Shown here is a 45-nucleotide sequence, a member of the family "Plastid-ycf3 group II-D1 intron". Pairs were carried over by alignment from the consensus structure, which was predicted with LocARNA.
RNA sequence: CCUUCUGUCGUGUAUCCUCGAUUGAUGCGGCCUCAGAUGCUUCAA
Numbered sequence: 001c002c003u004u005c006u007g008u009c010g011u012g013u014a015u016c017c018u019c020g021a022u023u024g025a026u027g028c029g030g031c032c033u034c035a036g037a038u039g040c041u042u043c044a045a
Stems, first nucleotide, its partner, number of pairs: 007022004029041003

For this family Rfam cites "Retrograde signaling in plants: A critical review focusing on the GUN pathway and beyond" (Richter et al., Plant Commun, 2023). Rfam links the family to the GO term Group II intron splicing. Plastid rpl16 is a non-coding RNA (ncRNA) recognised in plastids. It was recognised in and intronic region of a ribosome rpl16 gene.